Source information
Shown here is a 65-nucleotide RNA sequence from Microcebus murinus, a member of the family "Small nucleolar RNA SNORD77". The organism belongs to Microcebus, within Eukaryota. The family's consensus secondary structure was predicted with RNAalifold. A search with the family's covariance model found it, with a score of 59 bits. Rfam's curators write: U77 belongs to the C/D family of snoRNAs. It is predicted to guide 2'O-ribose methylation of large 28S rRNA subunit at position A1521.
RNA sequence: AUACUAUGAUGGUUGCAUAGGUCAGCAGAUUGAAUCAUGAGAUUUACCAUUUGUCAGACAUACCU
Dot-bracket structure: .((..(((((..((((........)))).....))))).((((.....))))........))...